[Rfam]
RNA sequence: CGAAAAGAGUGGCAAGUCAUUUGAAAAAAUGACACGCAAAGUUACGGACCUAAGGCGAUUGCUAUGGUGGCCGUGCUGCCGGG
Numbered sequence: 001c002g003a004a005a006a007g008a009g010u011g012g013c014a015a016g017u018c019a020u021u022u023g024a025a026a027a028a029a030u031g032a033c034a035c036g037c038a039a040a041g042u043u044a045c046g047g048a049c050c051u052a053a054g055g056c057g058a059u060u061g062c063u064a065u066g067g068u069g070g071c072c073g074u075g076c077u078g079c080c081g082g083g
Stems, first nucleotide, its partner, number of pairs: 012037002017032006040077003045073003048068003055062002
Background: This 83-nucleotide sequence from Alkalibacillus haloalkaliphilus belongs to the Rfam family "c-di-GMP-I riboswitch aptamer".